[Rfam]
RNA sequence: CUCUGAAACGGCAAAACCGGCGAAAGCCGGUGACGCAAAGCCACGGGUCUAAAGCAUAGCGCCAUGAUCGCCGGGCCGCCGAAG
Numbered sequence: 001c002u003c004u005g006a007a008a009c010g011g012c013a014a015a016a017c018c019g020g021c022g023a024a025a026g027c028c029g030g031u032g033a034c035g036c037a038a039a040g041c042c043a044c045g046g047g048u049c050u051a052a053a054g055c056a057u058a059g060c061g062c063c064a065u066g067a068u069c070g071c072c073g074g075g076c077c078g079c080c081g082a083a084g
Base pairs, nucleotide, nucleotide: 001084003081011036012035016031017030018029019028020027021026034070040076041075042074044073045072046071047068048067049066
RNA: c-di-GMP-I-GGC riboswitch aptamer
Organism: Sporobacter termitidis